[Rfam]
Nucleotides: 108
Base pairs, nucleotide, nucleotide: 001108003106004105005104006103007102008101013043014042015041016040017039021032022031023030026078027077028076029075044070045069046068047067049066050065051063052062053061054060074100079097080096082094083093084092
Number, partner (000 for none) and nucleotide at each position: 001108a002000a003106c004105u005104c006103a007102u008101g009000a010000a011000g012000a013043g014042g015041a016040c017039g018000a019000g020000a021032g022031g023030g024000g025000u026078c027077u028076g029075g030023c031022c032021c033000g034000a035000u036000g037000a038000c039017c040016g041015u042014c043013c044070g045069g046068c047067a048000a049066c050065c051063u052062g053061c054060c055000c056000g057000c058000a059000a060054g061053g062052c063051a064000a065050g066049g067047u068046g069045c070044c071000a072000a073000a074100g075029c076028c077027a078026g079097c080096c081000a082094c083093g084092g085000u086000g087000a088000g089000a090000u091000g092084c093083c094082g095000c096080g097079g098000u099000g100074c101008c102007a103006u104005g105004a106003g107000g108001u